Rfam assigns this 69-nucleotide RNA sequence from Sciurus vulgaris to the family "Small nucleolar RNA SNORD73". The organism belongs to Sciurus, within Eukaryota.
RNA sequence: AAUAUAUGAUGAAAAAAAUGUUUCGGUCCCAGAUGAUGUCCAGUGAUAACUCGGCAUUUUUCUGAUGUU
Numbered sequence: 001a002a003u004a005u006a007u008g009a010u011g012a013a014a015a016a017a018a019u020g021u022u023u024c025g026g027u028c029c030c031a032g033a034u035g036a037u038g039u040c041c042a043g044u045g046a047u048a049a050c051u052c053g054g055c056a057u058u059u060u061u062c063u064g065a066u067g068u069u
Stems, first nucleotide, its partner, number of pairs: 001069004
By type it is a C/D-box small nucleolar RNA.